About this RNA
A member of the RNA family "mir-8799 microRNA precursor family" from Canis lupus, 89 nucleotides long. NCBI's taxonomy places the organism under Eukaryota, Amniota, Eutheria, Caniformia, Canis lupus. The family's consensus secondary structure was predicted with RNAalifold. Its family is annotated with miRNA-mediated post-transcriptional gene silencing and RISC complex in the Gene Ontology.
[Rfam]
RNA sequence: GGGGAAAGGCCCGAUCCUGGGCUGUGUCCCGGCGCCCAGUGCUCCCGGCCUGCGCUGUUGGAUUCGCGCUCCCGGUGGCGCAGCCCCCU
Numbered sequence: 001g002g003g004g005a006a007a008g009g010c011c012c013g014a015u016c017c018u019g020g021g022c023u024g025u026g027u028c029c030c031g032g033c034g035c036c037c038a039g040u041g042c043u044c045c046c047g048g049c050c051u052g053c054g055c056u057g058u059u060g061g062a063u064u065c066g067c068g069c070u071c072c073c074g075g076u077g078g079c080g081c082a083g084c085c086c087c088c089u
Base pairs, nucleotide, nucleotide: 001087002086003085004084009081010080011078012077013076016075017074019072020071021070023068024067025066026065027062028061029060030057031056032055033054034053035052039050041049042048043047